[Rfam]
RNA sequence: GGAAUUCGGAUUGCGCCCUCCUCCUCCCAGCGCAUUCCGAUCAAGACUGGCGAUCCUCCUCCUCCCAAAUCGCCAGUCGUUACGCGUAACGCCCACCGGAUCCUCCUCCCCCGGUGGGCGUUAUCU
Numbered sequence: 001g002g003a004a005u006u007c008g009g010a011u012u013g014c015g016c017c018c019u020c021c022u023c024c025u026c027c028c029a030g031c032g033c034a035u036u037c038c039g040a041u042c043a044a045g046a047c048u049g050g051c052g053a054u055c056c057u058c059c060u061c062c063u064c065c066c067a068a069a070u071c072g073c074c075a076g077u078c079g080u081u082a083c084g085c086g087u088a089a090c091g092c093c094c095a096c097c098g099g100a101u102c103c104u105c106c107u108c109c110c111c112c113g114g115u116g117g118g119c120g121u122u123a124u125c126u
Base pairs, nucleotide, nucleotide: 007039008038009037010036012034013033014032015031016030045078046077047076048075049074050073051072052071053070054069089121090120091119092118093117094116095115096114097113098112099111
This 126-nucleotide RNA sequence from Rhizobium sp. LC145 belongs to the Rfam family "Alphaproteobacterial ar14". A search with the family's covariance model found it, with a score of 103 bits. A reference for the family is del Val et al. (2012), "A survey of sRNA families in alpha-proteobacteria", RNA Biol. From the family's description: Smr14C2 was renamed NfeR1 (Nodule Formation Efficiency RNA) highly expressed in salt stress and during the symbiotic interaction on legume roots.